[Rfam]
RNA sequence: GUAUCACAAGGUGAUGGUGCUCCACCUUUCCCAACCGCCCUGAUUUUUUCGGGCUGAUGACGCCUGAUAAAAC
Numbered sequence: 001g002u003a004u005c006a007c008a009a010g011g012u013g014a015u016g017g018u019g020c021u022c023c024a025c026c027u028u029u030c031c032c033a034a035c036c037g038c039c040c041u042g043a044u045u046u047u048u049u050c051g052g053g054c055u056g057a058u059g060a061c062g063c064c065u066g067a068u069a070a071a072a073c
Stems, first nucleotide, its partner, number of pairs: 010026004016064004021059001037054004
Dot-bracket structure: .........((((..[[[[.[.))))..........((((..........))))....].]]]].........
RNA: Fluoride riboswitch aptamer (crcB RNA motif)